This 120-nucleotide RNA sequence from Pseudomonas cavernae belongs to the Rfam family "Pseudomonas rpsL leader".

[Rfam]
RNA sequence: AUCCCGGACUCGCCUUGACGGGGUGUGGGAAGCUCUUUAGACUCAUGCACCCCUAAAUUUGGCAGGGCGUCUUGCUCUGCCAUUUUGUUUAUGUCGAAAGACAACAGUGGAGCUAGUAGA
Number, nucleotide and partner (000 for none) at each position: 001a000002u000003c000004c017005c000006g015007g014008a000009c000010u000011c000012g000013c000014c007015u006016u000017g004018a000019c000020g000021g052022g051023g050024u000025g048026u047027g046028g000029g044030a043031a000032g000033c040034u039035c000036u000037u000038u000039a034040g033041a000042c000043u030044c029045a000046u027047g026048c025049a000050c023051c022052c021053c000054u000055a000056a000057a000058u000059u000060u082061g081062g080063c079064a078065g077066g076067g075068c074069g000070u000071c000072u000073u000074g068075c067076u066077c065078u064079g063080c062081c061082a060083u000084u000085u000086u000087g000088u000089u000090u000091a000092u000093g102094u101095c100096g000097a000098a000099a000100g095101a094102c093103a000104a000105c000106a000107g000108u000109g000110g000111a000112g000113c000114u000115a000116g000117u000118a000119g000120a000